This 122-nucleotide RNA sequence from Rhododendron simsii belongs to the Rfam family "Small nucleolar RNA snoR100". The match comes from Rfam's covariance-model search (56 bits). For this family Rfam cites "Experimental RNomics: identification of 140 candidates for small non-messenger RNAs in the plant Arabidopsis thaliana" (Marker et al., Curr Biol, 2002). The family's consensus secondary structure was predicted with WAR. Rfam classes the family as an H/ACA-box small nucleolar RNA.

[Rfam]
RNA sequence: AGCUGAACACAACAUGGUAAUGUGCACAGAAAUUAAAUUGGGUCUCUAGGCCUGCCCUCUCUGAUACUAUUUGGCUUUCAUUAGUGGGCAUUGAAUAGUGGGCAUGGUUCCCAGCAAAACAA
Numbered sequence: 001a002g003c004u005g006a007a008c009a010c011a012a013c014a015u016g017g018u019a020a021u022g023u024g025c026a027c028a029g030a031a032a033u034u035a036a037a038u039u040g041g042g043u044c045u046c047u048a049g050g051c052c053u054g055c056c057c058u059c060u061c062u063g064a065u066a067c068u069a070u071u072u073g074g075c076u077u078u079c080a081u082u083a084g085u086g087g088g089c090a091u092u093g094a095a096u097a098g099u100g101g102g103c104a105u106g107g108u109u110c111c112c113a114g115c116a117a118a119a120c121a122a
Stems, first nucleotide, its partner, number of pairs: 013024003040105001042103003052093001054089003